RNA: Small nucleolar RNA SNORD115
Organism: Oryctolagus cuniculus
RNA sequence: GCGUUGAUGAUGAAACCUCAUUCUAUCUUGAAGAGAGAUGAUGACUUAAAAAUUAUGCUCAAUAGGAUUAUUCUGAGGCCC
Numbered sequence: 001g002c003g004u005u006g007a008u009g010a011u012g013a014a015a016c017c018u019c020a021u022u023c024u025a026u027c028u029u030g031a032a033g034a035g036a037g038a039u040g041a042u043g044a045c046u047u048a049a050a051a052a053u054u055a056u057g058c059u060c061a062a063u064a065g066g067a068u069u070a071u072u073c074u075g076a077g078g079c080c081c
Stems, first nucleotide, its partner, number of pairs: 001081001003079002005075002009071001